The record is a 73-nucleotide sequence, which matches "L13-Bacteroidia ribosomal protein leader" in Rfam.
It is one of the family's seed sequences.
On this family, see Eckert and Weinberg, BMC Microbiol 2020: "Discovery of 20 novel ribosomal leader candidates in bacteria and archaea".
The family's consensus secondary structure is taken from published work.
RNA sequence: AGAGUCCGCUAAAAGACUCUGUAUCUGCGUGUUAAUAGCGUAUCCUAUGGCCUGGGAACGUGGUUAGUGAAUC
Numbered sequence: 001a002g003a004g005u006c007c008g009c010u011a012a013a014a015g016a017c018u019c020u021g022u023a024u025c026u027g028c029g030u031g032u033u034a035a036u037a038g039c040g041u042a043u044c045c046u047a048u049g050g051c052c053u054g055g056g057a058a059c060g061u062g063g064u065u066a067g068u069g070a071a072u073c
Stems, first nucleotide, its partner, number of pairs: 001020006032067005038061004043057004